[Rfam]
The family of this 52-nucleotide RNA from Solanum commersonii is "MIR1886 microRNA precursor family". The family's consensus secondary structure was predicted with RNAalifold.
RNA sequence: UGAAAUAAAAUAAGCGUUUGGACAUGCAAUUUUACGCUAAUUUCAUUUCAUG
Number, nucleotide and partner (000 for none) at each position: 001u050002g049003a048004a047005a046006u045007a000008a043009a042010a041011u040012a000013a038014g037015c036016g035017u034018u029019u028020g027021g000022a000023c000024a000025u000026g000027c020028a019029a018030u000031u000032u000033u000034a017035c016036g015037c014038u013039a000040a011041u010042u009043u008044c000045a006046u005047u004048u003049c002050a001051u000052g000